RNA sequence: GACAAUGAUGUAAUAAACCUAUUCCAUUGCUGAAUAAUCACAAUGUUGAAGAAUCCAAACUGAUGUU
Numbered sequence: 001g002a003c004a005a006u007g008a009u010g011u012a013a014u015a016a017a018c019c020u021a022u023u024c025c026a027u028u029g030c031u032g033a034a035u036a037a038u039c040a041c042a043a044u045g046u047u048g049a050a051g052a053a054u055c056c057a058a059a060c061u062g063a064u065g066u067u
Stems, first nucleotide, its partner, number of pairs: 001067004
RNA: Small nucleolar RNA SNORD98
Organism: Stegastes partitus